Eukaryotic large subunit ribosomal RNA: a 420-nucleotide part of an RNA from Coccomyxa subellipsoidea. A search with the family's covariance model found it, with a score of 3163 bits. Its family is annotated with ribosome and structural constituent of ribosome in the Gene Ontology.
[Rfam]
RNA sequence: CGACCUGAGUUCAGGCAAGAACACCCGCUGAACUUAAGCAUAUCAAUAAGCGGAGGAAAAGAAACUAACCAGGAUUCCCCUAGUAGCGGCGAGCGAACCGGGAUAAGCCCAACUUGAAAAUCUCCGUCCUUCGGACGGCGAAUUGUAGUCUAGAGAGGUGUUCUCUGCGGCGGGCCGUGCCCAAGUCCCUUGGAAGGGGGCGUCCGAGAGGGUGAGAACCCCGUCGGCCACGGUCUUAGCCGCUCCACGAGGCGCUUUCGCAGAGUCGGGUUGUUUGGGAAUGCAGCCCAAAGCAGGUGGUAAGUCCCAUCUAAGGCUAAAUACUGACGGGAGACCGAUAGCGAACAAGUACCGCGAGGGAAAGAUGAAAAGAACUUUGAAAAGAGAGUUAAAAAGUGCUUGAAAUUGUUGGGGGGGAAG
Dot-bracket structure: .......................((((((.....((....))......))))).).........((....))...((((......((.....)).....))))..((((....(((.((.((.((((.......)))).)).)).)))......((((((.((((.(((((((.(((((.(...(.((((......)))))..(...)..((.......)).....).)))))..)).))))).....)))))))).))........(((((((........))))))).....(((((........)))))..)))).................................((....))...............((((....))))..................................